[Rfam]
Shown here is a 53-nucleotide sequence from Saliniradius amylolyticus, a member of the family "L31-Gammaproteobacteria ribosomal protein leader". A reference for the family is Eckert and Weinberg (2020), "Discovery of 20 novel ribosomal leader candidates in bacteria and archaea", BMC Microbiol. Clan: Ribosomal Protein L31 Leader clan. The source organism's lineage runs through Bacteria, Pseudomonadota, Alteromonadales, Alteromonadaceae and Saliniradius. The family's RNA type in Rfam is cis-regulatory leader.
RNA sequence: CGUAUGGUGUUCAGCUUCGGGCUGGAUAGCGAUGCGGCCUUAUACGAUGAGGU
Numbered sequence: 001c002g003u004a005u006g007g008u009g010u011u012c013a014g015c016u017u018c019g020g021g022c023u024g025g026a027u028a029g030c031g032a033u034g035c036g037g038c039c040u041u042a043u044a045c046g047a048u049g050a051g052g053u
Base pairs, nucleotide, nucleotide: 001036002035003034004033005032007030008029011025012024013023014022015021